[Rfam]
RNA: Small nucleolar RNA SNORA44
RNA sequence: CAGCAUGUCUCAUCAAGGGCUGUGGCUUGAAGUAGCCACAGGGUCUCCAACUACAUGCGAGAACAUACUGGAAAGACUUUGACAGCUUAGGUCUGUAUAUCUGUAGCUGCCACUCAACUUUCCUAUAUUA
Numbered sequence: 001c002a003g004c005a006u007g008u009c010u011c012a013u014c015a016a017g018g019g020c021u022g023u024g025g026c027u028u029g030a031a032g033u034a035g036c037c038a039c040a041g042g043g044u045c046u047c048c049a050a051c052u053a054c055a056u057g058c059g060a061g062a063a064c065a066u067a068c069u070g071g072a073a074a075g076a077c078u079u080u081g082a083c084a085g086c087u088u089a090g091g092u093c094u095g096u097a098u099a100u101c102u103g104u105a106g107c108u109g110c111c112a113c114u115c116a117a118c119u120u121u122c123c124u125a126u127a128u129u130a
Stems, first nucleotide, its partner, number of pairs: 013041001018037006070123006085110002088103004